[Rfam]
RNA sequence: CCAGUUGGCUGGGUAACCGCGCGCUUUAUAGAUGUAUUACAUCUCAAUGUGUGAGGAAAGUCCGGGCUCCACGAAAACUCGACGCCGGAUAACAUCCGGCAAAGGUGACUUUAGGGAAAGUGCCACAGAAAAUAUACCGCUUUUAUAUCAAUAAAAGUAAGGGUGAAAUGGCGAGGUAAGAGCUCACCGCAUUUUUGGCAACAAAAAUGGCAUGGUAAACCCCGUCGGGAGCAAGACCAAAUAGGGAUAGUGCUAAGCAUUAGUGCUUUAAGGUGUGUUUUCGACCUAACUAUCCGGGUAGGUUGCAUGAGAUGGCAUGUAAAUGUCAUCCUAGAUGAAUGGUUACCAAUCUAUACUGUAUAGAUAUACAGAACCCGGCUUAUAGGCCAACUGGUUUA
Numbered sequence: 001c002c003a004g005u006u007g008g009c010u011g012g013g014u015a016a017c018c019g020c021g022c023g024c025u026u027u028a029u030a031g032a033u034g035u036a037u038u039a040c041a042u043c044u045c046a047a048u049g050u051g052u053g054a055g056g057a058a059a060g061u062c063c064g065g066g067c068u069c070c071a072c073g074a075a076a077a078c079u080c081g082a083c084g085c086c087g088g089a090u091a092a093c094a095u096c097c098g099g100c101a102a103a104g105g106u107g108a109c110u111u112u113a114g115g116g117a118a119a120g121u122g123c124c125a126c127a128g129a130a131a132a133u134a135u136a137c138c139g140c141u142u143u144u145a146u147a148u149c150a151a152u153a154a155a156a157g158u159a160a161g162g163g164u165g166a167a168a169u170g171g172c173g174a175g176g177u178a179a180g181a182g183c184u185c186a187c188c189g190c191a192u193u194u195u196u197g198g199c200a201a202c203a204a205a206a207a208u209g210g211c212a213u214g215g216u217a218a219a220c221c222c223c224g225u226c227g228g229g230a231g232c233a234a235g236a237c238c239a240a241a242u243a244g245g246g247a248u249a250g251u252g253c254u255a256a257g258c259a260u261u262a263g264u265g266c267u268u269u270a271a272g273g274u275g276u277g278u279u280u281u282c283g284a285c286c287u288a289a290c291u292a293u294c295c296g297g298g299u300a301g302g303u304u305g306c307a308u309g310a311g312a313u314g315g316c317a318u319g320u321a322a323a324u325g326u327c328a329u330c331c332u333a334g335a336u337g338a339a340u341g342g343u344u345a346c347c348a349a350u351c352u353a354u355a356c357u358g359u360a361u362a363g364a365u366a367u368a369c370a371g372a373a374c375c376c377g378g379c380u381u382a383u384a385g386g387c388c389a390a391c392u393g394g395u396u397u398a
Stems, first nucleotide, its partner, number of pairs: 001394010011383001012347007020053005026047002058381003062378005067231004077281001080227005085099005100114001101112004115222002120220002122216003137162002139158008170188002173185003189211001190209008235304004245295006274288002277285002311330008
Shown here is a 398-nucleotide sequence from Candidatus Liberibacter americanus, a member of the family "Bacterial RNase P class A". The family's RNA type in Rfam is ribozyme. Taxonomically the source falls in Candidatus Liberibacter americanus (Bacteria, Pseudomonadati, Pseudomonadota, Hyphomicrobiales).